[Rfam]
RNA sequence: CUCCCGGCCGGAUCCCGUGGGGGGAAUCCGCACCGGGGCACAGGAAAACACCCCGACCGUCGAC
Numbered sequence: 001c002u003c004c005c006g007g008c009c010g011g012a013u014c015c016c017g018u019g020g021g022g023g024g025a026a027u028c029c030g031c032a033c034c035g036g037g038g039c040a041c042a043g044g045a046a047a048a049c050a051c052c053c054c055g056a057c058c059g060u061c062g063a064c
Base pairs, nucleotide, nucleotide: 001062003037004036005035006034007033009030010029011028012027013026014024015023016022043052044051